[Rfam]
RNA sequence: CUGGGUCCGGUGAUGUAACAUUUCGGAUGUAAACCCAUUAAACCACCGAGAGCGCAAAACCGUGUGGAGAUUUCCGUUGCCUUCCUUCUGAGUACCCGU
Numbered sequence: 001c002u003g004g005g006u007c008c009g010g011u012g013a014u015g016u017a018a019c020a021u022u023u024c025g026g027a028u029g030u031a032a033a034c035c036c037a038u039u040a041a042a043c044c045a046c047c048g049a050g051a052g053c054g055c056a057a058a059a060c061c062g063u064g065u066g067g068a069g070a071u072u073u074c075c076g077u078u079g080c081c082u083u084c085c086u087u088c089u090g091a092g093u094a095c096c097c098g099u
Base pairs, nucleotide, nucleotide: 004097005096024076025075026074027073
The record is a 99-nucleotide RNA from Lentithecium fluviatile, which matches "Small nucleolar RNA Z13/snr52" in Rfam. A search with the family's covariance model found it, with a score of 89 bits. The family's consensus secondary structure was predicted with PFOLD.